[Rfam]
RNA: Alphacoronavirus 5'UTR
RNA sequence: AUUUAAAGAAUACAAUCUAUCUAGGAUAGGUACAAUUCUCCUCCCCCUCUUGACUUCGGUCAACUCAACUCAACUAAACGAAAUCCCCCUUGCAUGGUUCCGACCCGUGUAAGGUUGUGUAUUUCGUGCAGUCGUUGCCCUUACUAGUGUAAGCGUAACGGCAUCUAGGUUUGCACGUCUUGGAGGAAACGGUGUGUACGUUUCUAGUGUUUACGCCGUAUCGGUUCCGGCCCGAUAGGUAUUGCAUUAGACGUCCUGGGUGGUUCUGCCUGCCCUUGUGUGAUUCGGCUGUUCCGUCAGUUUGGUCACCUCACACGUCCUUAAGACAUGGCUAACCAAUAUGUCCUGCGUG
Numbered sequence: 001a002u003u004u005a006a007a008g009a010a011u012a013c014a015a016u017c018u019a020u021c022u023a024g025g026a027u028a029g030g031u032a033c034a035a036u037u038c039u040c041c042u043c044c045c046c047c048u049c050u051u052g053a054c055u056u057c058g059g060u061c062a063a064c065u066c067a068a069c070u071c072a073a074c075u076a077a078a079c080g081a082a083a084u085c086c087c088c089c090u091u092g093c094a095u096g097g098u099u100c101c102g103a104c105c106c107g108u109g110u111a112a113g114g115u116u117g118u119g120u121a122u123u124u125c126g127u128g129c130a131g132u133c134g135u136u137g138c139c140c141u142u143a144c145u146a147g148u149g150u151a152a153g154c155g156u157a158a159c160g161g162c163a164u165c166u167a168g169g170u171u172u173g174c175a176c177g178u179c180u181u182g183g184a185g186g187a188a189a190c191g192g193u194g195u196g197u198a199c200g201u202u203u204c205u206a207g208u209g210u211u212u213a214c215g216c217c218g219u220a221u222c223g224g225u226u227c228c229g230g231c232c233c234g235a236u237a238g239g240u241a242u243u244g245c246a247u248u249a250g251a252c253g254u255c256c257u258g259g260g261u262g263g264u265u266c267u268g269c270c271u272g273c274c275c276u277u278g279u280g281u282g283a284u285u286c287g288g289c290u291g292u293u294c295c296g297u298c299a300g301u302u303u304g305g306u307c308a309c310c311u312c313a314c315a316c317g318u319c320c321u322u323a324a325g326a327c328a329u330g331g332c333u334a335a336c337c338a339a340u341a342u343g344u345c346c347u348g349c350g351u352g
Stems, first nucleotide, its partner, number of pairs: 008044001010042001016030006050063005080125005085117001088114003092110006099103001171335003177327007188318001190317002192314003196310001207247004217239001219237006258275006280309002287302005